[Rfam]
RNA sequence: CAUCCCGGACGGCCGGGAUGCGGACCCAAUAGCGGCGGGACGGCCCGC
Numbered sequence: 001c002a003u004c005c006c007g008g009a010c011g012g013c014c015g016g017g018a019u020g021c022g023g024a025c026c027c028a029a030u031a032g033c034g035g036c037g038g039g040a041c042g043g044c045c046c047g048c
Base pairs, nucleotide, nucleotide: 001020002019003018004017005016006015007014008013035048036047037046038045039044

Record summary
Guanidine-II riboswitch aptamer (mini-ykkC): a 48-nucleotide RNA from Pseudomonas panipatensis. Gene Ontology term of the family: regulation of gene expression. The family's consensus secondary structure is taken from published work. For this family Rfam cites "Identification of 22 candidate structured RNAs in bacteria using the CMfinder comparative genomics pipeline" (Weinberg et al., Nucleic Acids Res, 2007). A search with the family's covariance model found it, with a score of 44 bits. From the family's description: Simpler in structure and has fewer highly conserved nucleotide positions than the ykkC-yxkD leader.